[Rfam]
RNA: PhotoRC-II RNA
RNA sequence: ACACAUAUAUUUGCUCCCGCUAACCAAGACCUAUGGGAGGAUAAAUUACGUCUUCAUAUCCAGUAGCGAGGGGUUACUGGAAAUAAGUUUCGCAU
Numbered sequence: 001a002c003a004c005a006u007a008u009a010u011u012u013g014c015u016c017c018c019g020c021u022a023a024c025c026a027a028g029a030c031c032u033a034u035g036g037g038a039g040g041a042u043a044a045a046u047u048a049c050g051u052c053u054u055c056a057u058a059u060c061c062a063g064u065a066g067c068g069a070g071g072g073g074u075u076a077c078u079g080g081a082a083a084u085a086a087g088u089u090u091c092g093c094a095u
Stems, first nucleotide, its partner, number of pairs: 014039005027053004059081007